[Rfam]
RNA: Small nucleolar RNA SNORD72
RNA sequence: AGCUUAUCUGUGAUGUUCUUCUUUUCAAAAUGUCUGAACAUCUGAAUUAUUAAGUGAUUUCAUGUUGUUACUGAGAUAAGCU
Numbered sequence: 001a002g003c004u005u006a007u008c009u010g011u012g013a014u015g016u017u018c019u020u021c022u023u024u025u026c027a028a029a030a031u032g033u034c035u036g037a038a039c040a041u042c043u044g045a046a047u048u049a050u051u052a053a054g055u056g057a058u059u060u061c062a063u064g065u066u067g068u069u070a071c072u073g074a075g076a077u078a079a080g081c082u
Base pairs, nucleotide, nucleotide: 002081003080004079005078006077007076008075